[Rfam]
RNA sequence: CUCUUAUCAAGAGCGGCGGAGGGAAUAGGCCCGAAGAAGCCCGGCAACCUUCAAGAAAUCAAUGCUUGAAAAGGUGCUAAUUCCUACAGAUCAGGAAAUGAUCUGGAAGAUAAGAA
Numbered sequence: 001c002u003c004u005u006a007u008c009a010a011g012a013g014c015g016g017c018g019g020a021g022g023g024a025a026u027a028g029g030c031c032c033g034a035a036g037a038a039g040c041c042c043g044g045c046a047a048c049c050u051u052c053a054a055g056a057a058a059u060c061a062a063u064g065c066u067u068g069a070a071a072a073g074g075u076g077c078u079a080a081u082u083c084c085u086a087c088a089g090a091u092c093a094g095g096a097a098a099u100g101a102u103c104u105g106g107a108a109g110a111u112a113a114g115a116a
Stems, first nucleotide, its partner, number of pairs: 002115007013042001015041003021032003026086004043078004048074002050070006082108001087105006
Shown here is a 116-nucleotide sequence from Bacillus smithii, a member of the family "SAM riboswitch aptamer (S box leader)". The source organism's lineage runs through Bacteria, Bacillati, Bacillota, Bacillus and Bacillus smithii. Its family is annotated with regulation of gene expression in the Gene Ontology.